[Rfam]
RNA sequence: AAACAGCCCCCUAUGUUUUGAUUCUUUGGCAGUUUUGGACCCCCAAGGCAAAAAAAAAAAAAAAUGACACGUGGCACCUCACGUAUGGUGCCACGUCAGCGUUGACCGAGUCAACAAUGGACUGCCAAAGAAUCAAAACAUAGGGGGCUGUUU
Number, nucleotide and partner (000 for none) at each position: 001a153002a152003a000004c150005a149006g148007c147008c146009c000010c000011c000012u142013a141014u140015g139016u138017u137018u136019u135020g134021a133022u132023u131024c130025u129026u128027u127028g126029g125030c124031a123032g122033u121034u000035u000036u000037g000038g000039a000040c000041c000042c000043c120044c119045a118046a000047g000048g000049c000050a000051a000052a000053a000054a000055a000056a000057a000058a000059a000060a000061a000062a000063a000064a000065u000066g000067a000068c000069a096070c095071g000072u093073g092074g091075c090076a089077c088078c087079u000080c000081a000082c000083g000084u000085a000086u000087g078088g077089u076090g075091c074092c073093a072094c000095g070096u069097c000098a000099g000100c000101g000102u000103u000104g000105a000106c000107c000108g000109a000110g000111u000112c000113a000114a000115c000116a000117a000118u045119g044120g043121a033122c032123u031124g030125c029126c028127a027128a026129a025130g024131a023132a022133u021134c020135a019136a018137a017138a016139c015140a014141u013142a012143g000144g000145g000146g008147g007148c006149u005150g004151u000152u002153u001